RNA sequence: CAUUUUUAUUUCAUAAUUACCUUCGUUUCCCGAAAUGAACUGUACGACUUAGUAUUCACGCCAGGCUUAAUGCCUGGCGUUUUUUUU
Numbered sequence: 001c002a003u004u005u006u007u008a009u010u011u012c013a014u015a016a017u018u019a020c021c022u023u024c025g026u027u028u029c030c031c032g033a034a035a036u037g038a039a040c041u042g043u044a045c046g047a048c049u050u051a052g053u054a055u056u057c058a059c060g061c062c063a064g065g066c067u068u069a070a071u072g073c074c075u076g077g078c079g080u081u082u083u084u085u086u087u
Base pairs, nucleotide, nucleotide: 005039006038007037008036009035010034011033012032019026020025042055043054044053045052058080059079060078061077062076063075064074065073066072
RNA: Hfq-regulated sRNA 12
Organism: Erwinia amylovora